Plastid-ycf2 5UTR RNA: a 71-nucleotide RNA sequence from Coptis chinensis. It is annotated as a cis-regulatory element. About the family: Plastid ycf2 is a non-coding RNA (ncRNA) recognised in plastids. It was found in the prime untranslated region (5UTR) of ycf2 genes, it presents a tRNA-like motif which suggests it can be involved in mRNA maturation, particularly involved in defining the precise 5' end of the transcript.
RNA sequence: AUGCAUCCGCCAGAAUUGAACCUACGAAUUUGCCAAUUAUGAGUUGGCUUUAACCAUUCAGCCAUGGAUGC
Numbered sequence: 001a002u003g004c005a006u007c008c009g010c011c012a013g014a015a016u017u018g019a020a021c022c023u024a025c026g027a028a029u030u031u032g033c034c035a036a037u038u039a040u041g042a043g044u045u046g047g048c049u050u051u052a053a054c055c056a057u058u059c060a061g062c063c064a065u066g067g068a069u070g071c
Base pairs, nucleotide, nucleotide: 003071004070005069006068007067008066009025013021039065040064041063043062044061045060046059047055